[Rfam]
RNA sequence: CCUGUUUUGUGCUAAAUCUAUCGCAAGAUAGGGACAGAAAGCUACGAGUCUCUAUGAGAUAGUCGGGUUGCCAGG
Numbered sequence: 001c002c003u004g005u006u007u008u009g010u011g012c013u014a015a016a017u018c019u020a021u022c023g024c025a026a027g028a029u030a031g032g033g034a035c036a037g038a039a040a041g042c043u044a045c046g047a048g049u050c051u052c053u054a055u056g057a058g059a060u061a062g063u064c065g066g067g068u069u070g071c072c073a074g075g
Stems, first nucleotide, its partner, number of pairs: 012037002017032006040069004045065003048060003052056001
A member of the RNA family "c-di-GMP-I riboswitch aptamer" from Candidatus Moduliflexus flocculans, 75 nucleotides long. Rfam links the family to the GO term cyclic-di-GMP binding. The source organism's lineage runs through Bacteria, Candidatus Moduliflexota, Candidatus Moduliflexia, Candidatus Moduliflexales and Candidatus Moduliflexus. Clan: c-di-GMP_I riboswitch clan. The match comes from Rfam's covariance-model search (51 bits).